[Rfam]
RNA: mir-29 microRNA precursor family
RNA sequence: UGACAACUGUAUUCGGGUGUGUGGAUAGAGUGUGAUAAGUCUCUAGCACCAUUCGAAUUCAGUGCUCG
Numbered sequence: 001u002g003a004c005a006a007c008u009g010u011a012u013u014c015g016g017g018u019g020u021g022u023g024g025a026u027a028g029a030g031u032g033u034g035a036u037a038a039g040u041c042u043c044u045a046g047c048a049c050c051a052u053u054c055g056a057a058u059u060c061a062g063u064g065c066u067c068g
Stems, first nucleotide, its partner, number of pairs: 001068003005063001007062003011058005017052003021049003026045004